[Rfam]
RNA: Plant small nucleolar RNA R71
Organism: Arachis duranensis
RNA sequence: AGAGCAUGUCAGGAGGACACAUCCUGAUCAGUUGCUUGUAUCUUUCCCAAGCUUCAUAGAGGGAUUCACCUUCUUUUUGUCUGAAGGUUUAAAAUUCCACUCUGAUUUU
Numbered sequence: 001a002g003a004g005c006a007u008g009u010c011a012g013g014a015g016g017a018c019a020c021a022u023c024c025u026g027a028u029c030a031g032u033u034g035c036u037u038g039u040a041u042c043u044u045u046c047c048c049a050a051g052c053u054u055c056a057u058a059g060a061g062g063g064a065u066u067c068a069c070c071u072u073c074u075u076u077u078u079g080u081c082u083g084a085a086g087g088u089u090u091a092a093a094a095u096u097c098c099a100c101u102c103u104g105a106u107u108u109u
Base pairs, nucleotide, nucleotide: 001109003107004106005104006103059076060075062073